[Rfam]
This 299-nucleotide RNA sequence from Serinus canaria belongs to the Rfam family "Metazoan signal recognition particle RNA".
Rfam 15.1 lists 383,523 matches to the family in 1,221 species.
It scores 188 bits against the family's covariance model.

RNA sequence: GUUGUAUGGUUUGAAUACAGCUGUAAUCCCAGCUGCUGGGGAGGCUGAGCCCGAUGGAUCGCUUGAGCCCAGGAGUUUUGGGCUGCCGUGCGCUGAGCCAAGCAGGCAUCCAAGCCAAGGCCACCAUCAAUAUGGUGACCCACAGGGAGCUGGGGGACACCAGGUUGACUAAGGAGGGGUGAACCGGCCCAGGUUGGAGAUGGAGCAGGUCAAAGCUCCCAUGGCGGUCAGUGGUGGGACCACACCUGUGAAUAGCCACGCCAGCAUAGCCUGGGCAACACAGAGACACGCGGGCUCCC
Dot-bracket structure: (((((((.......))))))).....(((..........)))....(((((((.....((.((...(((((((....(((.((((.((((.((((..(...(((((..(((..((((.((((.((((((((.(((((.(((.(((....))).))).))))).)))).(...)..(((((.....((((....(((....)))....))))...))))).)))).))))..)))).))...)..))))))..)))))))).)))).)))))))))).....)).))....)))))))..